[Rfam]
RNA sequence: GAUAAUUGAAUAGAAUUACCGUAGACAGUAGGGGCCUUUGGCUUAAUGAUCCUACCGAGGUUUUGGAUAUAUAUAUAUAUUAUUUAUUUUCAUGCCUUAGUUACACCCUUCUGUCCACAUUUUAGUGGGUAAAAGGGUUUUUCUACGGACUU
Number, nucleotide and partner (000 for none) at each position: 001g000002a000003u000004a000005a000006u000007u000008g000009a000010a000011u000012a000013g000014a000015a000016u000017u000018a000019c000020c000021g000022u000023a000024g000025a000026c000027a000028g055029u054030a053031g052032g051033g050034g042035c041036c040037u000038u000039u000040g036041g035042c034043u000044u000045a000046a000047u000048g000049a000050u033051c032052c031053u030054a029055c028056c000057g000058a000059g000060g000061u000062u000063u000064u000065g000066g000067a000068u000069a000070u000071a000072u000073a000074u000075a000076u000077a000078u000079a000080u000081u000082a000083u000084u000085u000086a000087u000088u000089u000090u000091c000092a000093u000094g000095c000096c000097u000098u000099a000100g000101u000102u000103a000104c000105a000106c137107c136108c135109u134110u133111c000112u131113g130114u129115c128116c127117a126118c125119a000120u000121u000122u000123u000124a000125g118126u117127g116128g115129g114130u113131a112132a000133a110134a109135g108136g107137g106138u000139u000140u000141u000142u000143c000144u000145a000146c000147g000148g000149a000150c000151u000152u000
RNA: Ribosomal protein L10 leader
Organism: Turicibacter sp. H121